[Rfam]
A member of the RNA family "Purine riboswitch aptamer" from Blautia sp. OF03-15BH, 100 nucleotides long.
Its Rfam clan is "Purine riboswitches".
Lineage of the source: Bacteria > Bacillota > Lachnospirales > Lachnospiraceae > Blautia.
A search with the family's covariance model found it, with a score of 46 bits.
RNA sequence: AUUCAGAUAGUAAUGUUAUCCGAUAUAGGUCUGUGAAGAAGGUUCAGACGUUUCUACCGCACGCCGUUCAGUUGCGACUAUUGGGUUCGAUAGAAAGAAC
Numbered sequence: 001a002u003u004c005a006g007a008u009a010g011u012a013a014u015g016u017u018a019u020c021c022g023a024u025a026u027a028g029g030u031c032u033g034u035g036a037a038g039a040a041g042g043u044u045c046a047g048a049c050g051u052u053u054c055u056a057c058c059g060c061a062c063g064c065c066g067u068u069c070a071g072u073u074g075c076g077a078c079u080a081u082u083g084g085g086u087u088c089g090a091u092a093g094a095a096a097g098a099a100c
Base pairs, nucleotide, nucleotide: 018086019085020084021083022082023081024080025079029049030048031047032046033045035043058076059075060074061073